[Rfam]
RNA sequence: CGACGUGGCCCGCCGAAUCCGCGACAUCGCGAAACCGGGGACCCACUUCAUUUCUGGGGUGAAUCGGUCGAUCUCUUCCAGAGACGGUCCGUAGGGCACUUCCACGCCCGAACCCGGCAGCUAACCCGGUAGGCGGAAUGGAAGCAAGGA
Numbered sequence: 001c002g003a004c005g006u007g008g009c010c011c012g013c014c015g016a017a018u019c020c021g022c023g024a025c026a027u028c029g030c031g032a033a034a035c036c037g038g039g040g041a042c043c044c045a046c047u048u049c050a051u052u053u054c055u056g057g058g059g060u061g062a063a064u065c066g067g068u069c070g071a072u073c074u075c076u077u078c079c080a081g082a083g084a085c086g087g088u089c090c091g092u093a094g095g096g097c098a099c100u101u102c103c104a105c106g107c108c109c110g111a112a113c114c115c116g117g118c119a120g121c122u123a124a125c126c127c128g129g130u131a132g133g134c135g136g137a138a139u140g141g142a143a144g145c146a147a148g149g150a
Base pairs, nucleotide, nucleotide: 011135012134013133014132018033020031021030022029023028034130035129036128037127038126039125044056045055057115058114059113065091066090067089094109095108096107097106

Overview
Rfam assigns this 150-nucleotide sequence from Nonomuraea cavernae to the family "c-di-AMP riboswitch aptamer (ydaO/yuaA leader)". Lineage of the source: Bacteria > Actinomycetes > Streptosporangiales > Streptosporangiaceae > Nonomuraea.